[Rfam]
A member of the RNA family "RNase MRP" from Pseudogymnoascus sp. VKM F-4520, 472 nucleotides long. Rfam describes the family as follows. RNase MRP is an enzymatically active ribonucleoprotein with two distinct roles in eukaryotes. In mitochondria it plays a direct role in the initiation of mitochondrial DNA replication. On this family, see Rosenblad et al., Nucleic Acids Res 2006: "Inventory and analysis of the protein subunits of the ribonucleases P and MRP provides further evidence of homology between the yeast and human enzymes". Lineage of the source: Eukaryota > Ascomycota > Leotiomycetes > Thelebolaceae > Pseudogymnoascus. Clan: RNaseP clan.

RNA sequence: UCCUCGUUCAAAGGAUCGCAGUCGAAGCACACAAACGGAGCAGACCUCGUGUCUCUCAGCUCAUCAUGGGCUAGUCAAUGCUUUGGGAGAAAGUCCCCGGACGACCUUUACCUCGUGUAAAGGAACGCGGAAACGCGCCGCCAUAGAAGCACUGCGGCUUCUUUCUCCUCUCCUACCUUUCUCAGGCCGACCUUCGUCGCUGCUUGUACUCGCUUUCUGCGCAUUUGAUUGCUGCUUCUGGGGGAUGGGGAGACCAUAUGGAUGAAGAUAUGAGUCCGAGCUCUCCUGAUCUCAGCUGCGGUAGAGCAUAUGCAACGACUGCGGGGAGGCGGGGAAGUACCUUCGGUCGGAGUUGGGGCUUAUGGGAGAGGGGAGGCUUUCGUCGAGAGUGAUAGUUAUGCGAUUGCUCCCUUGGCCUGCCUCACGGUUGGUUCGGGGGGGUAACUCGAUGGGGCUUAUUCUUGAGACGAGG
Dot-bracket structure: .((((((((((..((((((..(((((((.........((((.((...........)).)))).................)))))).)...[[[.[[[[...........................((((....))))((((............))))..............((((.........(((.......................................................................................................................................................(((...)))....)))........)))).................................)))))).(((((((((.................))))))))).........]]]]]]]....)))).))))))
Numbered sequence: 001u002c003c004u005c006g007u008u009c010a011a012a013g014g015a016u017c018g019c020a021g022u023c024g025a026a027g028c029a030c031a032c033a034a035a036c037g038g039a040g041c042a043g044a045c046c047u048c049g050u051g052u053c054u055c056u057c058a059g060c061u062c063a064u065c066a067u068g069g070g071c072u073a074g075u076c077a078a079u080g081c082u083u084u085g086g087g088a089g090a091a092a093g094u095c096c097c098c099g100g101a102c103g104a105c106c107u108u109u110a111c112c113u114c115g116u117g118u119a120a121a122g123g124a125a126c127g128c129g130g131a132a133a134c135g136c137g138c139c140g141c142c143a144u145a146g147a148a149g150c151a152c153u154g155c156g157g158c159u160u161c162u163u164u165c166u167c168c169u170c171u172c173c174u175a176c177c178u179u180u181c182u183c184a185g186g187c188c189g190a191c192c193u194u195c196g197u198c199g200c201u202g203c204u205u206g207u208a209c210u211c212g213c214u215u216u217c218u219g220c221g222c223a224u225u226u227g228a229u230u231g232c233u234g235c236u237u238c239u240g241g242g243g244g245a246u247g248g249g250g251a252g253a254c255c256a257u258a259u260g261g262a263u264g265a266a267g268a269u270a271u272g273a274g275u276c277c278g279a280g281c282u283c284u285c286c287u288g289a290u291c292u293c294a295g296c297u298g299c300g301g302u303a304g305a306g307c308a309u310a311u312g313c314a315a316c317g318a319c320u321g322c323g324g325g326g327a328g329g330c331g332g333g334g335a336a337g338u339a340c341c342u343u344c345g346g347u348c349g350g351a352g353u354u355g356g357g358g359c360u361u362a363u364g365g366g367a368g369a370g371g372g373g374a375g376g377c378u379u380u381c382g383u384c385g386a387g388a389g390u391g392a393u394a395g396u397u398a399u400g401c402g403a404u405u406g407c408u409c410c411c412u413u414g415g416c417c418u419g420c421c422u423c424a425c426g427g428u429u430g431g432u433u434c435g436g437g438g439g440g441g442u443a444a445c446u447c448g449a450u451g452g453g454g455c456u457u458a459u460u461c462u463u464g465a466g467a468c469g470a471g472g
Stems, first nucleotide, its partner, number of pairs: 002472006008465004014405006022087001023085006038062004043057002091457003095454004126137004138157004172366004185354003339347003407441009